Shown here is a 92-nucleotide RNA sequence from Amaricoccus solimangrovi, a member of the family "Selenocysteine transfer RNA". Pairs were carried over by alignment from the consensus structure, which is taken from published work. A search with the family's covariance model found it, with a score of 81 bits. The organism belongs to Amaricoccus, within Bacteria.

[Rfam]
RNA sequence: GGAGGAGAAUCGUCCCCGGUGGGGCGUCCGGACUUCAAAUCCGGGUGGGGCGGCGAGACCGUCCCGGGUGGGUUCGACUCCCAUUCUCCUUC
Numbered sequence: 001g002g003a004g005g006a007g008a009a010u011c012g013u014c015c016c017c018g019g020u021g022g023g024g025c026g027u028c029c030g031g032a033c034u035u036c037a038a039a040u041c042c043g044g045g046u047g048g049g050g051c052g053g054c055g056a057g058a059c060c061g062u063c064c065c066g067g068g069u070g071g072g073u074u075c076g077a078c079u080c081c082c083a084u085u086c087u088c089c090u091u092c
Base pairs, nucleotide, nucleotide: 001092002091003090004089005088006087007086008085009084011026012025013024014023015022016021027045028044029043030042031041032040047065048064049063050062051061069083070082071081072080